Rfam assigns this 118-nucleotide RNA from Treponema phagedenis to the family "TD-2 RNA". Rfam classes the family as a small RNA. A search with the family's covariance model found it, with a score of 59 bits. The organism belongs to Treponema, within Bacteria. Its Rfam clan is "TD (Treponema denticola) motifs".

[Rfam]
RNA sequence: ACCGCCACGGAUGGCGGUGGUUCCACUCAGAAACGAUGUUUUAAAAGCACAGCCCUUUUUAAAUGCUUUUAAAACUCGUAGGUGUUAUUUUAAUACGGAUGUUAAAAUAACACCGUUG
Numbered sequence: 001a002c003c004g005c006c007a008c009g010g011a012u013g014g015c016g017g018u019g020g021u022u023c024c025a026c027u028c029a030g031a032a033a034c035g036a037u038g039u040u041u042u043a044a045a046a047g048c049a050c051a052g053c054c055c056u057u058u059u060u061a062a063a064u065g066c067u068u069u070u071a072a073a074a075c076u077c078g079u080a081g082g083u084g085u086u087a088u089u090u091u092a093a094u095a096c097g098g099a100u101g102u103u104a105a106a107a108u109a110a111c112a113c114c115g116u117u118g
Base pairs, nucleotide, nucleotide: 001018002017003016004015005014006013034078035077036076038075039074040073041072042071043070044069045068046067047066048065049064081114082113083112084111085110086109087108088107089106090105091104092103093102094101